RNA sequence: GCUAAACUGUUUUUGCGAUGUGUUCCUAAUAUGCACUAUGAAUAUAUUGGGAACAUCUUGCAGCCAUAGUUUUGUAUC
Numbered sequence: 001g002c003u004a005a006a007c008u009g010u011u012u013u014u015g016c017g018a019u020g021u022g023u024u025c026c027u028a029a030u031a032u033g034c035a036c037u038a039u040g041a042a043u044a045u046a047u048u049g050g051g052a053a054c055a056u057c058u059u060g061c062a063g064c065c066a067u068a069g070u071u072u073u074g075u076a077u078c
Stems, first nucleotide, its partner, number of pairs: 004072007014062005020056014
Dot-bracket structure: ...(((((((...(((((.((((((((((((((.........)))))))))))))).)))))...)))))))......
mir-450 microRNA precursor family: a 78-nucleotide RNA from Castor canadensis. On this family, see Ahn et al., Mol Hum Reprod 2010: "MicroRNA transcriptome in the newborn mouse ovaries determined by massive parallel sequencing". The family has 36 seed sequences and 374 matches in Rfam 15.1. It scores 94 bits against the family's covariance model. Rfam links the family to the GO terms RISC complex and miRNA-mediated post-transcriptional gene silencing.